[Rfam]
RNA sequence: CCCCUGAUCCGGGCCCCUCUGGCGAGCGCUGCCGGCCGCGCCGCGAUGUCGGAUCACUCUU
Numbered sequence: 001c002c003c004c005u006g007a008u009c010c011g012g013g014c015c016c017c018u019c020u021g022g023c024g025a026g027c028g029c030u031g032c033c034g035g036c037c038g039c040g041c042c043g044c045g046a047u048g049u050c051g052g053a054u055c056a057c058u059c060u061u
Base pairs, nucleotide, nucleotide: 006055007054008053009052010051011050012049022044023043024042026041027040028039029038
Rfam assigns this 61-nucleotide sequence from Muricoccus pecuniae to the family "terC RNA". It is annotated as a cis-regulatory element. The match comes from Rfam's covariance-model search (52 bits). Rfam 15.1 lists 1,112 matches to the family in 772 species. Pairs were carried over by alignment from the consensus structure, which is taken from published work.